Record summary:
The record is a 113-nucleotide RNA from Plutella xylostella, which matches "mir-8517 microRNA precursor family" in Rfam. The family's consensus secondary structure was predicted with RNAalifold. The source organism's lineage runs through Eukaryota, Eumetazoa, Altocrustacea, Yponomeutoidea and Plutella.
RNA sequence: UUAUAAUAAAUUAUGUUUUAACUAAUAGACUGUUUUGUCCCUCUCCGACAAAAAACUAUUUGUUCUUUGACAGAGAGGGACAGAACAGUGUAUUGGUUGAAGCGUCUUGUAAC
Numbered sequence: 001u002u003a004u005a006a007u008a009a010a011u012u013a014u015g016u017u018u019u020a021a022c023u024a025a026u027a028g029a030c031u032g033u034u035u036u037g038u039c040c041c042u043c044u045c046c047g048a049c050a051a052a053a054a055a056c057u058a059u060u061u062g063u064u065c066u067u068u069g070a071c072a073g074a075g076a077g078g079g080a081c082a083g084a085a086c087a088g089u090g091u092a093u094u095g096g097u098u099g100a101a102g103c104g105u106c107u108u109g110u111a112a113c
Stems, first nucleotide, its partner, number of pairs: 001112006016102012029089005034074006054064003